RNA sequence: CUGCGGGACCGGGCCCCUCUGGCGAUCUCACUCGAUCGUGAUGUCGGACCGCAUCG
Numbered sequence: 001c002u003g004c005g006g007g008a009c010c011g012g013g014c015c016c017c018u019c020u021g022g023c024g025a026u027c028u029c030a031c032u033c034g035a036u037c038g039u040g041a042u043g044u045c046g047g048a049c050c051g052c053a054u055c056g
Base pairs, nucleotide, nucleotide: 006050007049009047010046011045012044022039023038024037025036026035027034